Small nucleolar RNA MBII-202: an 82-nucleotide RNA sequence from Clarias magur. Lineage of the source: Eukaryota > Bilateria > Gnathostomata > Neopterygii > Clarias. A search with the family's covariance model found it, with a score of 55 bits.
[Rfam]
RNA sequence: UGAUGACAAAUUCUCCGGAAUCUCUGUACAUCUUUUGAUGAUACUCCUUGAACCCCUUUUGCUGAUGACUGUUCUGCUCGGU
Dot-bracket structure: .(.(((.......................................................................))).)